Shown here is a 71-nucleotide sequence from Rhinopomastus cyanomelas, a member of the family "Small nucleolar RNA SNORD18". By type it is a C/D-box small nucleolar RNA. A search with the family's covariance model found it, with a score of 77 bits. For this family Rfam cites "Two different snoRNAs are encoded in introns of amphibian and human L1 ribosomal protein genes" (Prislei et al., Nucleic Acids Res, 1993).
RNA sequence: CCGAAGUGAUGAGAUUCCACUUCAUGGUCCGUGUUUUUGAAACCCAUGAUAACAGUGGAAGUUCUGAUUGG
Numbered sequence: 001c002c003g004a005a006g007u008g009a010u011g012a013g014a015u016u017c018c019a020c021u022u023c024a025u026g027g028u029c030c031g032u033g034u035u036u037u038u039g040a041a042a043c044c045c046a047u048g049a050u051a052a053c054a055g056u057g058g059a060a061g062u063u064c065u066g067a068u069u070g071g
Base pairs, nucleotide, nucleotide: 001071002070003069004068